[Rfam]
RNA sequence: UACGUCUUUGUGAACCGAGCUAAUGCCCCUACGUCACUCAUGAUAAGGAGCAUUAGCCGUGGCCUCGAGCCACCAGGGCCGACAGCGAAAGCCACCGAGCCUCCCGUAACUAUUGGAAAGGUGACACAUGCAACAACUG
Numbered sequence: 001u002a003c004g005u006c007u008u009u010g011u012g013a014a015c016c017g018a019g020c021u022a023a024u025g026c027c028c029c030u031a032c033g034u035c036a037c038u039c040a041u042g043a044u045a046a047g048g049a050g051c052a053u054u055a056g057c058c059g060u061g062g063c064c065u066c067g068a069g070c071c072a073c074c075a076g077g078g079c080c081g082a083c084a085g086c087g088a089a090a091g092c093c094a095c096c097g098a099g100c101c102u103c104c105c106g107u108a109a110c111u112a113u114u115g116g117a118a119a120g121g122u123g124a125c126a127c128a129u130g131c132a133a134c135a136a137c138u139g
Stems, first nucleotide, its partner, number of pairs: 006130001014122003019057008028048002033044004059073005076102004080097002085092002103116002

This 139-nucleotide RNA sequence from Ferrimonas lipolytica belongs to the Rfam family "Molybdenum/Tungsten riboswitch aptamer (Moco RNA motif)". A search with the family's covariance model found it, with a score of 70 bits.